[Rfam]
RNA sequence: AGGAAAAGUUUUAAAACAGCUCAUAUAUACCCAUAAUAUGGAUGGGAGUUUCUACCGGAAGCCGUAAAUUUCUGACUAUGAGCGAAAGUUAUUUGCAU
Numbered sequence: 001a002g003g004a005a006a007a008g009u010u011u012u013a014a015a016a017c018a019g020c021u022c023a024u025a026u027a028u029a030c031c032c033a034u035a036a037u038a039u040g041g042a043u044g045g046g047a048g049u050u051u052c053u054a055c056c057g058g059a060a061g062c063c064g065u066a067a068a069u070u071u072c073u074g075a076c077u078a079u080g081a082g083c084g085a086a087a088g089u090u091a092u093u094u095g096c097a098u
Stems, first nucleotide, its partner, number of pairs: 019083007030046005056074006
Annotation
The record is a 98-nucleotide RNA sequence from Clostridium oryzae, which matches "Purine riboswitch aptamer" in Rfam. A search with the family's covariance model found it, with a score of 74 bits. The family's consensus secondary structure is taken from published work.